[Rfam]
Nucleotides: 144
Stems, first nucleotide, its partner, number of pairs: 003048006021036005
Number, partner (000 for none) and nucleotide at each position: 001000u002000c003048u004047u005046c006045c007044a008043a009000g010000g011000a012000g013000c014000g015000u016000u017000g018000c019000g020000a021036c022035a023034a024033g025032u026000g027000u028000u029000c030000a031000a032025a033024c034023u035022u036021g037000c038000c039000a040000g041000g042000c043008u044007u045006g046005g047004a048003a049000u050000c051000a052000c053000g054000g055000g056000u057000u058000c059000a060000g061000c062000c063000c064000c065000u066000a067000g068000c069000c070000u071000u072000u073000u074000u075000u076000c077000u078000c079000a080000u081000c082000u083000c084000u085000g086000c087000a088000u089000g090000a091000g092000g093000u094000g095000a096000a097000g098000a099000a100000u101000g102000a103000a104000a105000c106000c107000g108000g109000g110000u111000g112000a113000c114000g115000g116000c117000u118000g119000g120000c121000u122000c123000a124000u125000c126000a127000a128000a129000a130000c131000u132000g133000c134000g135000c136000u137000c138000a139000c140000g141000u142000u143000a144000c